The family of this 105-nucleotide sequence from Prunus persica is "MIR6274 microRNA precursor family".
The family has 2 seed sequences and 342 matches in Rfam 15.1.
Gene Ontology terms of the family: RISC complex and miRNA-mediated post-transcriptional gene silencing.

RNA sequence: GGAUAACACUUUUUGCUAUCUCCGACCAAUAACGCAGUGACACGUAGGAUAACUUUUCCACGUGUCAUUGUGUUAUUGGCCGGAGAUAGCAAAACAGUGUUAUCC
Numbered sequence: 001g002g003a004u005a006a007c008a009c010u011u012u013u014u015g016c017u018a019u020c021u022c023c024g025a026c027c028a029a030u031a032a033c034g035c036a037g038u039g040a041c042a043c044g045u046a047g048g049a050u051a052a053c054u055u056u057u058c059c060a061c062g063u064g065u066c067a068u069u070g071u072g073u074u075a076u077u078g079g080c081c082g083g084a085g086a087u088a089g090c091a092a093a094a095c096a097g098u099g100u101u102a103u104c105c
Stems, first nucleotide, its partner, number of pairs: 002104004011094009021084004026079020047058003